[Rfam]
Rfam assigns this 95-nucleotide RNA sequence from Apostasia shenzhenica to the family "Small nucleolar RNA Z159/U59". A search with the family's covariance model found it, with a score of 52 bits. The organism belongs to Apostasia, within Eukaryota. The base pairs follow the family's consensus structure, which was predicted with PFOLD.
RNA sequence: AUCUCUGACGAUGAUAGAAAGAGAACUUUUGUUUUUUCGAGCUUGACAAACUCUGCUAUGUGGAAAAAAUUUUGGGGGACCUGAACUAAGGAGAA
Numbered sequence: 001a002u003c004u005c006u007g008a009c010g011a012u013g014a015u016a017g018a019a020a021g022a023g024a025a026c027u028u029u030u031g032u033u034u035u036u037u038c039g040a041g042c043u044u045g046a047c048a049a050a051c052u053c054u055g056c057u058a059u060g061u062g063g064a065a066a067a068a069a070u071u072u073u074g075g076g077g078g079a080c081c082u083g084a085a086c087u088a089a090g091g092a093g094a095a
Base pairs, nucleotide, nucleotide: 003093004092005091006090
Dot-bracket structure: ..((((...................................................................................))))..